[Rfam]
RNA sequence: UCUCCCUCUGCCUGUGUCUCUGCCUCUCUCUCUAUGUCUCUCAUGAAUAAAUAAAUGAAGUCUUUUUUUUUAAAGAUUUUAUUUAUUUAUUCAUGAGAGACCCAGAGAGAGAGAGAGGCAGAGACACAGGCAGAGGGAGA
Numbered sequence: 001u002c003u004c005c006c007u008c009u010g011c012c013u014g015u016g017u018c019u020c021u022g023c024c025u026c027u028c029u030c031u032c033u034a035u036g037u038c039u040c041u042c043a044u045g046a047a048u049a050a051a052u053a054a055a056u057g058a059a060g061u062c063u064u065u066u067u068u069u070u071u072a073a074a075g076a077u078u079u080u081a082u083u084u085a086u087u088u089a090u091u092c093a094u095g096a097g098a099g100a101c102c103c104a105g106a107g108a109g110a111g112a113g114a115g116a117g118g119c120a121g122a123g124a125c126a127c128a129g130g131c132a133g134a135g136g137g138a139g140a
Stems, first nucleotide, its partner, number of pairs: 002139002005136006012129007020121014035104002039098004044093012057080002060077003064073002
Shown here is a 140-nucleotide sequence from Canis lupus, a member of the family "MIR7725 microRNA precursor family". Pairs were carried over by alignment from the consensus structure, which was predicted with RNAalifold. Gene Ontology terms of the family: RISC complex and miRNA-mediated post-transcriptional gene silencing. The match comes from Rfam's covariance-model search (78 bits).